[Rfam]
RNA sequence: GUAGUCGGAUUCACAUCAAUCCACAUGUGUUGAAGUGGAUUAGAGUGGAAUUUAAACUAAAUUCCACACCAACACACAUGGAUUGAAGUGAAUUCGACA
Numbered sequence: 001g002u003a004g005u006c007g008g009a010u011u012c013a014c015a016u017c018a019a020u021c022c023a024c025a026u027g028u029g030u031u032g033a034a035g036u037g038g039a040u041u042a043g044a045g046u047g048g049a050a051u052u053u054a055a056a057c058u059a060a061a062u063u064c065c066a067c068a069c070c071a072a073c074a075c076a077c078a079u080g081g082a083u084u085g086a087a088g089u090g091a092a093u094u095c096g097a098c099a
Base pairs, nucleotide, nucleotide: 004098005097006096007095008094009093010092011091012090013089014088016086017085018084019083020082021081022080023079026076027075028074029073030072031071032070043069045067046066047065

The record is a 99-nucleotide RNA from Sorghum bicolor, which matches "MIR5565 microRNA precursor family" in Rfam.
The family's consensus secondary structure was predicted with RNAalifold.
The match comes from Rfam's covariance-model search (84 bits).
Its family is annotated with RISC complex and miRNA-mediated post-transcriptional gene silencing in the Gene Ontology.